[Rfam]
RNA sequence: ACGCCGUCCCGAGCGGCGUCCGCGGCCCGCCACGGGCCCUGAGCGGGGGUGGUGCCGUGUCGGCGCAGCACCACCCCCCAC
Numbered sequence: 001a002c003g004c005c006g007u008c009c010c011g012a013g014c015g016g017c018g019u020c021c022g023c024g025g026c027c028c029g030c031c032a033c034g035g036g037c038c039c040u041g042a043g044c045g046g047g048g049g050u051g052g053u054g055c056c057g058u059g060u061c062g063g064c065g066c067a068g069c070a071c072c073a074c075c076c077c078c079c080a081c
Stems, first nucleotide, its partner, number of pairs: 001019007021041002024039002026036003045078011057066003
Streptomyces RNA 6106: an 81-nucleotide RNA from Streptomyces zinciresistens.
Identified by deep sequencing of transcriptome at the end of exponential growth phase. Appears smaller on northern blot than sequencing transcript. This indicates processing step.
The base pairs follow the family's consensus structure.
It is annotated as a small RNA.
The literature on the family includes a 2011 paper in RNA Biol by Vockenhuber et al., "Deep sequencing-based identification of small non-coding RNAs in Streptomyces coelicolor".